[Rfam]
Notes:
This 90-nucleotide sequence from Camellia sinensis belongs to the Rfam family "Small nucleolar RNA Z102/R77". The family's consensus secondary structure was predicted with PFOLD. Rfam links the family to the GO terms RNA processing and nucleolus. The organism belongs to Camellia, within Eukaryota. A search with the family's covariance model found it, with a score of 64 bits. Rfam 15.1 lists 1,346 matches to the family in 224 species.

RNA sequence: UGAUGAUCAUGAUUCAUGAUUUUCUUUCCCCAUUGGGUUGAUUGCCGAAAUGAUGGCAUCAUAAUUGUAUUAAGCUCUAUUUGCUCAUUC
Dot-bracket structure: .((((..................................(..((((........)))).).........................)))).

The family's RNA type in Rfam is C/D-box small nucleolar RNA.